RNA sequence: UUGAUGAAGACAAGGAAGAGGAGUAUGAUACAAGUAUGUAUCAUUUUAGUGAGCAUGUAGCUCCAGCGAGGGAGAGUAAGAGCUUGAGUAAAGCUCACAGAAACCAAAGCCUGUUGCAGAAGUGGUGCAAGAAGCAGGAUAAGUUCAUCUCCAAAUGGAUAAAUAGUAUAAAUUCGUUGAAGGCAAUGGUUAGCUUCUCCUCAUCUUGCAGAACCUCCU
Numbered sequence: 001u002u003g004a005u006g007a008a009g010a011c012a013a014g015g016a017a018g019a020g021g022a023g024u025a026u027g028a029u030a031c032a033a034g035u036a037u038g039u040a041u042c043a044u045u046u047u048a049g050u051g052a053g054c055a056u057g058u059a060g061c062u063c064c065a066g067c068g069a070g071g072g073a074g075a076g077u078a079a080g081a082g083c084u085u086g087a088g089u090a091a092a093g094c095u096c097a098c099a100g101a102a103a104c105c106a107a108a109g110c111c112u113g114u115u116g117c118a119g120a121a122g123u124g125g126u127g128c129a130a131g132a133a134g135c136a137g138g139a140u141a142a143g144u145u146c147a148u149c150u151c152c153a154a155a156u157g158g159a160u161a162a163a164u165a166g167u168a169u170a171a172a173u174u175c176g177u178u179g180a181a182g183g184c185a186a187u188g189g190u191u192a193g194c195u196u197c198u199c200c201u202c203a204u205c206u207u208g209c210a211g212a213a214c215c216u217c218c219u
Base pairs, nucleotide, nucleotide: 003217004216011208014206015205016204018202019201020200021199022198023197025195
Dot-bracket structure: ..((......(..(((.((((((.(.........................................................................................................................................................................).)))))).))).).......))..

Rfam assigns this 219-nucleotide RNA sequence from Arabidopsis lyrata to the family "MIR854 microRNA precursor family".
Rfam links the family to the GO terms RISC complex and miRNA-mediated post-transcriptional gene silencing.
A reference for the family is Arteaga-Vazquez et al. (2006), "A family of microRNAs present in plants and animals", Plant Cell.